[Rfam]
RNA sequence: GCCUAUGAUGUUUUAAUCCAACUGGUUUGAGUUGUUGUGGAGUCAAGCCCCUGUCAUCAGGGAGAACCUACUUGGUAAAGCUACAUUCAUAUGACAUCUAUGGAUUUAACUGAGGC
Numbered sequence: 001g002c003c004u005a006u007g008a009u010g011u012u013u014u015a016a017u018c019c020a021a022c023u024g025g026u027u028u029g030a031g032u033u034g035u036u037g038u039g040g041a042g043u044c045a046a047g048c049c050c051c052u053g054u055c056a057u058c059a060g061g062g063a064g065a066a067c068c069u070a071c072u073u074g075g076u077a078a079a080g081c082u083a084c085a086u087u088c089a090u091a092u093g094a095c096a097u098c099u100a101u102g103g104a105u106u107u108a109a110c111u112g113a114g115g116c
Stems, first nucleotide, its partner, number of pairs: 001116003049062005

Background
Rfam assigns this 116-nucleotide RNA from Cicer arietinum to the family "Small nucleolar RNA Z278". The source organism's lineage runs through Eukaryota, Mesangiospermae, fabids, Cicereae and Cicer. Its family is annotated with nucleolus and RNA processing in the Gene Ontology. On this family, see Chen et al., Nucleic Acids Res 2003: "The high diversity of snoRNAs in plants: identification and comparative study of 120 snoRNA genes from Oryza sativa". A search with the family's covariance model found it, with a score of 64 bits. Rfam's curators write: snoZ278 is a C/D box small nucleolar RNA. Its methylation guide targets have not been reported.